[Rfam]
RNA sequence: AAAAAGGGCGCGUCACGAAGUUCUGUUGAAAAAGUUGGGAGCAAUCUCUCUUUUUCCUCAGGCCAAUGUGUCAGGAGUCUUGAUUUACUCUUGCGGUAUGGCAAUCAAGACAUAUCGAGCGCAUAAUUUUUUGCUCUGGGUGGCUCACUUGGCUUCGCUCAAGCCGGAGCUGUC
Numbered sequence: 001a002a003a004a005a006g007g008g009c010g011c012g013u014c015a016c017g018a019a020g021u022u023c024u025g026u027u028g029a030a031a032a033a034g035u036u037g038g039g040a041g042c043a044a045u046c047u048c049u050c051u052u053u054u055u056c057c058u059c060a061g062g063c064c065a066a067u068g069u070g071u072c073a074g075g076a077g078u079c080u081u082g083a084u085u086u087a088c089u090c091u092u093g094c095g096g097u098a099u100g101g102c103a104a105u106c107a108a109g110a111c112a113u114a115u116c117g118a119g120c121g122c123a124u125a126a127u128u129u130u131u132u133g134c135u136c137u138g139g140g141u142g143g144c145u146c147a148c149u150u151g152g153c154u155u156c157g158c159u160c161a162a163g164c165c166g167g168a169g170c171u172g173u174c
Stems, first nucleotide, its partner, number of pairs: 008122004014070004072093007094117007140174001143171001146169001148167002151165004
The record is a 174-nucleotide RNA sequence from Mucor saturninus, which matches "U11 spliceosomal RNA" in Rfam. The family is grouped with related families in Rfam's "U1 clan". Pairs were carried over by alignment from the consensus structure, which is taken from published work. The source organism's lineage runs through Eukaryota, Fungi, Mucorineae, Mucoraceae and Mucor. It scores 60 bits against the family's covariance model.